Notes: The record is a 167-nucleotide RNA sequence from Kyrpidia spormannii, which matches "c-di-AMP riboswitch aptamer (ydaO/yuaA leader)" in Rfam. A search with the family's covariance model found it, with a score of 90 bits. The source organism's lineage runs through Bacteria, Bacilli, Caryophanales, Alicyclobacillaceae and Kyrpidia.
[Rfam]
RNA sequence: AAAACGGAGACGCUGAGUUCCAUGUCCAGUGGAAGCGGAGGACCCAUGUGUGGGGUGAAUCCGGGCGGGCUGUUCUCAGAAGAUUUGAGAAUGUUUCAUCCGCUCGGUAGGGUGAGCUCUCCACCCGAACCCGUCAGCUAACUUCGCAAGCGUUGGAGGGAGCGGUG
Numbered sequence: 001a002a003a004a005c006g007g008a009g010a011c012g013c014u015g016a017g018u019u020c021c022a023u024g025u026c027c028a029g030u031g032g033a034a035g036c037g038g039a040g041g042a043c044c045c046a047u048g049u050g051u052g053g054g055g056u057g058a059a060u061c062c063g064g065g066c067g068g069g070c071u072g073u074u075c076u077c078a079g080a081a082g083a084u085u086u087g088a089g090a091a092u093g094u095u096u097c098a099u100c101c102g103c104u105c106g107g108u109a110g111g112g113u114g115a116g117c118u119c120u121c122c123a124c125c126c127g128a129a130c131c132c133g134u135c136a137g138c139u140a141a142c143u144u145c146g147c148a149a150g151c152g153u154u155g156g157a158g159g160g161a162g163c164g165g166u167g
Stems, first nucleotide, its partner, number of pairs: 011152004018034005035147006045052002053132003061107009110126004